[Rfam]
RNA sequence: GGUGUCGGCUGAAUCAGAGAUUGGCUGACACAAAGAUAAACCUUUUACAUUUAGGAAUAGACAAUGUCUCUGAAUGCAGAAACUAAAGCAGCAAUCGUUGCUGAAUACGCGCAAGGCGAA
Numbered sequence: 001g002g003u004g005u006c007g008g009c010u011g012a013a014u015c016a017g018a019g020a021u022u023g024g025c026u027g028a029c030a031c032a033a034a035g036a037u038a039a040a041c042c043u044u045u046u047a048c049a050u051u052u053a054g055g056a057a058u059a060g061a062c063a064a065u066g067u068c069u070c071u072g073a074a075u076g077c078a079g080a081a082a083c084u085a086a087a088g089c090a091g092c093a094a095u096c097g098u099u100g101c102u103g104a105a106u107a108c109g110c111g112c113a114a115g116g117c118g119a120a
Base pairs, nucleotide, nucleotide: 007026008025009024010023011022012021050074051073052072053071054070055069

About this RNA:
The family of this 120-nucleotide RNA from Veronia pacifica is "Ribosomal S15 leader". Clan: Ribosomal Protein S15 Leader clan. The E. coli Ribosomal S15 gene 5' UTR can form two alternative structures. One that is a series of three hairpins, The other includes a pseudoknot. Rfam links the family to the GO term regulation of translation, ncRNA-mediated. Rfam classes the family as a cis-regulatory leader. A reference for the family is Benard et al. (1996), "Pseudoknot and translational control in the expression of the S15 ribosomal protein", Biochimie. The source organism's lineage runs through Bacteria, Pseudomonadota, Vibrionales, Vibrionaceae and Veronia.